[Rfam]
RNA: RT-9 RNA
RNA sequence: GAUCAAUGCGAUUACGGUUUCAUUGACAUGACCCUUAAGUUCAGUCGGACUUAAGUUUGAACUUCAGGGGAGAAUUAAUCCUUCACUUUUAGUGUAAACACAUGAAUAAUG
Dot-bracket structure: ..((((((.(((....))).)))))).........................................................((((...)))).................